[Rfam]
Small nucleolar RNA SNORD83: a 76-nucleotide RNA sequence from Sphenodon punctatus.
RNA sequence: GCCAAAUGAUGUAAACCAGAUGACAUUAGCACUCUGUGCAAAGAUGACUCUUAUCUAUCACCCAAUGCUGAUGGCU
Numbered sequence: 001g002c003c004a005a006a007u008g009a010u011g012u013a014a015a016c017c018a019g020a021u022g023a024c025a026u027u028a029g030c031a032c033u034c035u036g037u038g039c040a041a042a043g044a045u046g047a048c049u050c051u052u053a054u055c056u057a058u059c060a061c062c063c064a065a066u067g068c069u070g071a072u073g074g075c076u
Stems, first nucleotide, its partner, number of pairs: 001075004029039004

By type it is a C/D-box small nucleolar RNA. Rfam 15.1 lists 1,393 matches to the family in 644 species. It scores 66 bits against the family's covariance model. The source organism's lineage runs through Eukaryota, Opisthokonta, Bilateria, Euteleostomi and Sphenodon. Gene Ontology terms of the family: nucleolus and RNA processing.